[Rfam]
RNA: SAM riboswitch aptamer (S box leader)
RNA sequence: AACUUAUUAAGAGCUAUCGAGGCCCGUGACCGUUGAAGUAGCGGCAACCUAUUAAAUUAGGUGCCAUCACAAGGGGGAAACCCAACAAUAAGGA
Numbered sequence: 001a002a003c004u005u006a007u008u009a010a011g012a013g014c015u016a017u018c019g020a021g022g023c024c025c026g027u028g029a030c031c032g033u034u035g036a037a038g039u040a041g042c043g044g045c046a047a048c049c050u051a052u053u054a055a056a057u058u059a060g061g062u063g064c065c066a067u068c069a070c071a072a073g074g075g076g077g078a079a080a081c082c083c084a085a086c087a088a089u090a091a092g093g094a
Base pairs, nucleotide, nucleotide: 003092004091005090006089007088008087013042014041015040016039017038021031022030025073027071028070043065044064045063046062048061049060051057052056074083075082076081